[Rfam]
RNA: U2 spliceosomal RNA
RNA sequence: UCAGCUCUCUUUGCCUUUUGGCUUAGAUCAAGUGUAGUAUCUGUUCUUUAUAGUGUAAAAACUAUAACGCUAGUACGCUAGCAAAUUGUUUUACUCUUAUUUUUGGAACCGGUCGAUGGGUCACUGGGCUUGCUCAUACUCAUUGGCAAAGUGUCGUCUUCCUUGCACUCCGAAGAUGUACGCGACUAUCU
Numbered sequence: 001u002c003a004g005c006u007c008u009c010u011u012u013g014c015c016u017u018u019u020g021g022c023u024u025a026g027a028u029c030a031a032g033u034g035u036a037g038u039a040u041c042u043g044u045u046c047u048u049u050a051u052a053g054u055g056u057a058a059a060a061a062c063u064a065u066a067a068c069g070c071u072a073g074u075a076c077g078c079u080a081g082c083a084a085a086u087u088g089u090u091u092u093a094c095u096c097u098u099a100u101u102u103u104u105g106g107a108a109c110c111g112g113u114c115g116a117u118g119g120g121u122c123a124c125u126g127g128g129c130u131u132g133c134u135c136a137u138a139c140u141c142a143u144u145g146g147c148a149a150a151g152u153g154u155c156g157u158c159u160u161c162c163u164u165g166c167a168c169u170c171c172g173a174a175g176a177u178g179u180a181c182g183c184g185a186c187u188a189u190c191u
Stems, first nucleotide, its partner, number of pairs: 008027003013022003048067006069082005112147008125136004151183004156177006